Rfam assigns this 53-nucleotide RNA to the family "terC RNA". Pairs were carried over by alignment from the consensus structure, which is taken from published work. By type it is a cis-regulatory element. Rfam's curators put it in the seed alignment.
RNA sequence: AUGUGAUACCGGGCCCCUCUGACGGCUGCCAAGCCGCCAUGUCGGAUCACUGU
Numbered sequence: 001a002u003g004u005g006a007u008a009c010c011g012g013g014c015c016c017c018u019c020u021g022a023c024g025g026c027u028g029c030c031a032a033g034c035c036g037c038c039a040u041g042u043c044g045g046a047u048c049a050c051u052g053u
Stems, first nucleotide, its partner, number of pairs: 006047002009045004023036005